RNA sequence: GGGUCUGGCAAUGAAAUGCGUGCCAGAGGAUAAAGAUGGUCGGGCCGCCAUCU
Numbered sequence: 001g002g003g004u005c006u007g008g009c010a011a012u013g014a015a016a017u018g019c020g021u022g023c024c025a026g027a028g029g030a031u032a033a034a035g036a037u038g039g040u041c042g043g044g045c046c047g048c049c050a051u052c053u
Stems, first nucleotide, its partner, number of pairs: 005026006034053007